[Rfam]
This 81-nucleotide sequence from Cynoglossus semilaevis belongs to the Rfam family "Small nucleolar RNA SNORD79". Its Rfam clan is "SNORD74 clan". The family's consensus secondary structure was predicted with PFOLD. The literature on the family includes a 2002 paper in Mol Cell Biol by Galardi et al., "Purified box C/D snoRNPs are able to reproduce site-specific 2'-O-methylation of target RNA in vitro". NCBI's taxonomy places the organism under Eukaryota, Gnathostomata, Euteleosteomorpha, Neoteleostei, Cynoglossus. The family's RNA type in Rfam is C/D-box small nucleolar RNA. From the family's description: snoRNA U79 or Z22 is found in intron 7 of the gas5 gene in humans and is also present in mice.
RNA sequence: GACUGUAAAUGAUGAUUUUGUUUAAAAACAAUGGGAAUCUCUCUGAAAAGAAUGAAAGAUUUUUUUUUUCCUGAUACAGUG
Numbered sequence: 001g002a003c004u005g006u007a008a009a010u011g012a013u014g015a016u017u018u019u020g021u022u023u024a025a026a027a028a029c030a031a032u033g034g035g036a037a038u039c040u041c042u043c044u045g046a047a048a049a050g051a052a053u054g055a056a057a058g059a060u061u062u063u064u065u066u067u068u069u070c071c072u073g074a075u076a077c078a079g080u081g
Stems, first nucleotide, its partner, number of pairs: 002080006